[Rfam]
RNA sequence: GCCCUGAUCGGAAACCAGGACGGGACCAAAGGAG
Numbered sequence: 001g002c003c004c005u006g007a008u009c010g011g012a013a014a015c016c017a018g019g020a021c022g023g024g025a026c027c028a029a030a031g032g033a034g
Base pairs, nucleotide, nucleotide: 001021003019004018005017006016008014
Source information:
A member of the RNA family "L31-Coriobacteria ribosomal protein leader" from Triticum aestivum, 34 nucleotides long. The family's RNA type in Rfam is cis-regulatory leader. The match comes from Rfam's covariance-model search (37 bits). Lineage of the source: Eukaryota > Embryophyta > Poales > Triticeae > Triticum. The family is grouped with related families in Rfam's "Ribosomal Protein L31 Leader clan".